[Rfam]
RNA sequence: AUGGGCCGGUGAUGAUUGAAAAAGUUUGCCUACAUUGUUUGAUUUAACCACUGAAAUGGAAACUUGAAUCCUAUAUUCACUCUGAGGCUCAU
Numbered sequence: 001a002u003g004g005g006c007c008g009g010u011g012a013u014g015a016u017u018g019a020a021a022a023a024g025u026u027u028g029c030c031u032a033c034a035u036u037g038u039u040u041g042a043u044u045u046a047a048c049c050a051c052u053g054a055a056a057u058g059g060a061a062a063c064u065u066g067a068a069u070c071c072u073a074u075a076u077u078c079a080c081u082c083u084g085a086g087g088c089u090c091a092u
Base pairs, nucleotide, nucleotide: 001092002091004089005088006087007086

Rfam assigns this 92-nucleotide RNA sequence from Brassica carinata to the family "Small nucleolar RNA SNORD34". The family's consensus secondary structure was predicted with PFOLD. Clan: SNORD34 clan. It scores 40 bits against the family's covariance model. Rfam describes the family as follows. snoRNA U34 is found in intron 5 of the ribosomal protein L13a gene in humans. On this family, see Galardi et al., Mol Cell Biol 2002: "Purified box C/D snoRNPs are able to reproduce site-specific 2'-O-methylation of target RNA in vitro". Taxonomically the source falls in Brassica (Eukaryota, Viridiplantae, Streptophytina, Magnoliopsida). Rfam links the family to the GO terms nucleolus and RNA processing.